This 433-nucleotide part of an RNA from Fusarium longipes belongs to the Rfam family "Eukaryotic large subunit ribosomal RNA".
[Rfam]
RNA sequence: GGUAGUAGCAAAUACUUCAAUGAGAACUUGAAGGACCGAAGUGGGGAAAGGUUCCAUGUGAACAGCGGUUGGACAUGGGUUAGUCGAUCCUAAGCCAUAGGGAAGUUCCGUUUCAAAGGUGCACUUUGCACCGUCUGGCGAAAGGGGAGCCGGUCAAUAUUCCGGCACCUGGAUGUGGGUUUUGCGCGGCAACGCAACUGAACGUGGAGACGACGGCGGGGGCCCCAAGCAGAGUUCUCUUUUCUUCUUAACGGUCUAUCACCCUGAAAUCGGUUUGUCCGGAGCUAGGGUUUAAUGGCCGGAAGAGCCCGGCACCUCUGCCGGGUUUGGUGCGCUCUCGACGUCCCUUGAAAAUCCACGGGAAGAAAUAAUUCUCACGCCAGGUCGUACUCAUAACCGCAGCAGGUCUCCAAGGUGAACAGCCUCUGGUUGA
Numbered sequence: 001g002g003u004a005g006u007a008g009c010a011a012a013u014a015c016u017u018c019a020a021u022g023a024g025a026a027c028u029u030g031a032a033g034g035a036c037c038g039a040a041g042u043g044g045g046g047a048a049a050g051g052u053u054c055c056a057u058g059u060g061a062a063c064a065g066c067g068g069u070u071g072g073a074c075a076u077g078g079g080u081u082a083g084u085c086g087a088u089c090c091u092a093a094g095c096c097a098u099a100g101g102g103a104a105g106u107u108c109c110g111u112u113u114c115a116a117a118g119g120u121g122c123a124c125u126u127u128g129c130a131c132c133g134u135c136u137g138g139c140g141a142a143a144g145g146g147g148a149g150c151c152g153g154u155c156a157a158u159a160u161u162c163c164g165g166c167a168c169c170u171g172g173a174u175g176u177g178g179g180u181u182u183u184g185c186g187c188g189g190c191a192a193c194g195c196a197a198c199u200g201a202a203c204g205u206g207g208a209g210a211c212g213a214c215g216g217c218g219g220g221g222g223c224c225c226c227a228a229g230c231a232g233a234g235u236u237c238u239c240u241u242u243u244c245u246u247c248u249u250a251a252c253g254g255u256c257u258a259u260c261a262c263c264c265u266g267a268a269a270u271c272g273g274u275u276u277g278u279c280c281g282g283a284g285c286u287a288g289g290g291u292u293u294a295a296u297g298g299c300c301g302g303a304a305g306a307g308c309c310c311g312g313c314a315c316c317u318c319u320g321c322c323g324g325g326u327u328u329g330g331u332g333c334g335c336u337c338u339c340g341a342c343g344u345c346c347c348u349u350g351a352a353a354a355u356c357c358a359c360g361g362g363a364a365g366a367a368a369u370a371a372u373u374c375u376c377a378c379g380c381c382a383g384g385u386c387g388u389a390c391u392c393a394u395a396a397c398c399g400c401a402g403c404a405g406g407u408c409u410c411c412a413a414g415g416u417g418a419a420c421a422g423c424c425u426c427u428g429g430u431u432g433a
Stems, first nucleotide, its partner, number of pairs: 015033006034431004043411004049391002054078006063071002085387003089145002094139002097111002100109003119131003149166005169383004174379005179373001186195003203360006212345004217340007225330003228248002231245003252301005261291006270282004308325007397406002413425004
The base pairs follow the family's consensus structure, which is taken from published work. Gene Ontology terms of the family: ribosome and structural constituent of ribosome. NCBI's taxonomy places the organism under Eukaryota, Fungi, Hypocreomycetidae, Nectriaceae, Fusarium sambucinum species complex.